The family of this 118-nucleotide RNA from Pseudohongiella spirulinae is "Ribosomal S15 leader". From the family's description: The E. coli Ribosomal S15 gene 5' UTR can form two alternative structures. On this family, see Benard et al., Biochimie 1996: "Pseudoknot and translational control in the expression of the S15 ribosomal protein". Gene Ontology term of the family: regulation of translation, ncRNA-mediated.
RNA sequence: CGGUUAUGCUGGCUGACAGGAUGUUAUUAAUUACUAAUGCAUAUUGAUUUGGAGAUUUAAAAUGGCUUUAACAACCGAACAGAAACAGACAAUUGUCAAAGAAUAUGGCCGCGGCGAA
Numbered sequence: 001c002g003g004u005u006a007u008g009c010u011g012g013c014u015g016a017c018a019g020g021a022u023g024u025u026a027u028u029a030a031u032u033a034c035u036a037a038u039g040c041a042u043a044u045u046g047a048u049u050u051g052g053a054g055a056u057u058u059a060a061a062a063u064g065g066c067u068u069u070a071a072c073a074a075c076c077g078a079a080c081a082g083a084a085a086c087a088g089a090c091a092a093u094u095g096u097c098a099a100a101g102a103a104u105a106u107g108g109c110c111g112c113g114g115c116g117a118a
Stems, first nucleotide, its partner, number of pairs: 007026002010023002049071006